The family of this 178-nucleotide RNA from Cyanomargarita calcarea is "Antisense RNA which regulates isiA expression". Taxonomically the source falls in Cyanomargarita calcarea (Bacteria, Bacillati, Nostocales, Cyanomargarita). On this family, see Duhring et al., Proc Natl Acad Sci U S A 2006: "An internal antisense RNA regulates expression of the photosynthesis gene isiA".
Nucleotides: 178
Base pairs, nucleotide, nucleotide: 136175137174138173139172140171141170144169145168146167147166148165
Number, partner (000 for none) and nucleotide at each position: 001000g002000a003000u004000a005000g006000c007000c008000a009000u010000a011000a012000a013000u014000c015000a016000c017000u018000a019000a020000u021000g022000g023000a024000u025000u026000c027000a028000g029000a030000g031000u032000u033000g034000g035000a036000u037000u038000g039000g040000u041000g042000a043000c044000a045000a046000c047000u048000c049000g050000g051000a052000c053000a054000g055000c056000a057000u058000g059000a060000c061000u062000u063000g064000c065000c066000g067000a068000g069000u070000c071000g072000u073000a074000c075000a076000a077000u078000c079000c080000a081000c082000c083000c084000c085000a086000a087000u088000a089000c090000a091000u092000a093000g094000c095000u096000u097000u098000c099000g100000c101000a102000a103000c104000a105000a106000g107000c108000a109000a110000c111000a112000a113000a114000g115000c116000u117000c118000c119000a120000g121000c122000c123000c124000c125000c126000a127000a128000g129000a130000a131000c132000a133000g134000c135000a136175a137174g138173u139172g140171a141170u142000g143000u144169c145168c146167g147166a148165g149000a150000a151000u152000c153000a154000a155000a156000c157000c158000u159000a160000g161000c162000u163000g164000u165148u166147u167146c168145g169144g170141a171140u172139c173138g174137u175136u176000c177000c178000a